The family of this 85-nucleotide RNA from Pan troglodytes is "Y RNA". The literature on the family includes a 2000 paper in Nucleic Acids Res by Teunissen et al., "Conserved features of Y RNAs: a comparison of experimentally derived secondary structures".

RNA sequence: GGCUGGUCUGAUGGUAGUGGGUUAUCAGUGGUUGUUUCACUAAAGCUGGUAUACAACACCCACUCCUAAAUUUGCCUGGCUUUUU
Numbered sequence: 001g002g003c004u005g006g007u008c009u010g011a012u013g014g015u016a017g018u019g020g021g022u023u024a025u026c027a028g029u030g031g032u033u034g035u036u037u038c039a040c041u042a043a044a045g046c047u048g049g050u051a052u053a054c055a056a057c058a059c060c061c062a063c064u065c066c067u068a069a070a071u072u073u074g075c076c077u078g079g080c081u082u083u084u085u
Stems, first nucleotide, its partner, number of pairs: 001081006008074001010073002015068001016064006026049001027047002
The match comes from Rfam's covariance-model search (50 bits).